[Rfam]
RNA sequence: GGAAGCGAGUGUCUGUCGAGGCACGACUGAACUUAGAUCGCUAGGUUGGCUGAUCAGUCCAGUUUGUUUAACCUCCUUUCCUCUACUCUUGGUAAUGCUUGUCGCUCCCGAUGCCCCGGCAUUUGCUGGAGUCGCACGGUUGAGCGGCAUUGGCCCAAACUCCGCACACGAUUUCUUCCUCACCUUCAUGAGGAUAGCUUAGCUUGUGUUGUCAAUUGUGCUUCCAAUACUGUGGCGUAUCUCGAGGAUACCUGCCGGUAUUUUCG
Numbered sequence: 001g002g003a004a005g006c007g008a009g010u011g012u013c014u015g016u017c018g019a020g021g022c023a024c025g026a027c028u029g030a031a032c033u034u035a036g037a038u039c040g041c042u043a044g045g046u047u048g049g050c051u052g053a054u055c056a057g058u059c060c061a062g063u064u065u066g067u068u069u070a071a072c073c074u075c076c077u078u079u080c081c082u083c084u085a086c087u088c089u090u091g092g093u094a095a096u097g098c099u100u101g102u103c104g105c106u107c108c109c110g111a112u113g114c115c116c117c118g119g120c121a122u123u124u125g126c127u128g129g130a131g132u133c134g135c136a137c138g139g140u141u142g143a144g145c146g147g148c149a150u151u152g153g154c155c156c157a158a159a160c161u162c163c164g165c166a167c168a169c170g171a172u173u174u175c176u177u178c179c180u181c182a183c184c185u186u187c188a189u190g191a192g193g194a195u196a197g198c199u200u201a202g203c204u205u206g207u208g209u210u211g212u213c214a215a216u217u218g219u220g221c222u223u224c225c226a227a228u229a230c231u232g233u234g235g236c237g238u239a240u241c242u243c244g245a246g247g248a249u250a251c252c253u254g255c256c257g258g259u260a261u262u263u264u265c266g
Stems, first nucleotide, its partner, number of pairs: 001225007015072002027062003031058003036055004040050004234256003237251005
A member of the RNA family "Arthropod 7SK RNA" from Tigriopus californicus, 266 nucleotides long.